[Rfam]
Record summary: Small nucleolar RNA R64/Z200 family: a 101-nucleotide RNA sequence. The family's RNA type in Rfam is C/D-box small nucleolar RNA. Its family is annotated with nucleolus and RNA processing in the Gene Ontology. On this family, see Galardi et al., Mol Cell Biol 2002: "Purified box C/D snoRNPs are able to reproduce site-specific 2'-O-methylation of target RNA in vitro".
RNA sequence: UUUCUGCUAUGAUGAUUUAUUGAAAUGAAUUCACAUGUCAGACUUCAGAGAUUUUUUCAUAAAAUCCAUGAGAAUAAAAUUUCAUGAUUUCUGAGCAGGGA
Numbered sequence: 001u002u003u004c005u006g007c008u009a010u011g012a013u014g015a016u017u018u019a020u021u022g023a024a025a026u027g028a029a030u031u032c033a034c035a036u037g038u039c040a041g042a043c044u045u046c047a048g049a050g051a052u053u054u055u056u057u058c059a060u061a062a063a064a065u066c067c068a069u070g071a072g073a074a075u076a077a078a079a080u081u082u083c084a085u086g087a088u089u090u091c092u093g094a095g096c097a098g099g100g101a
Base pairs, nucleotide, nucleotide: 001101002100003099004098005097006096007095050066051065052064053063054062055061